Background
Rfam assigns this 108-nucleotide RNA from Rhizobium sp. Leaf306 to the family "TPP riboswitch aptamer (THI element)". Vitamin B(1) in its active form thiamin pyrophosphate (TPP) is an essential coenzyme that is synthesised by coupling of pyrimidine and thiazole moieties in bacteria.
RNA sequence: CCCGCUCUAACGGGGUGCUGCGCGGUAACGUGCGGCUGAGAGGCUUUCAGCCAACCCGCGGAACCUGAUCCGGCUAACACCGGCGGAGGGAUUAGACGCCUCACGCUC
Numbered sequence: 001c002c003c004g005c006u007c008u009a010a011c012g013g014g015g016u017g018c019u020g021c022g023c024g025g026u027a028a029c030g031u032g033c034g035g036c037u038g039a040g041a042g043g044c045u046u047u048c049a050g051c052c053a054a055c056c057c058g059c060g061g062a063a064c065c066u067g068a069u070c071c072g073g074c075u076a077a078c079a080c081c082g083g084c085g086g087a088g089g090g091a092u093u094a095g096a097c098g099c100c101u102c103a104c105g106c107u108c
Base pairs, nucleotide, nucleotide: 006096007095008094009093010092011058012057013056014055017036018035019034020033021032022031023030043051044050045049064089065088066087070083071082072081073080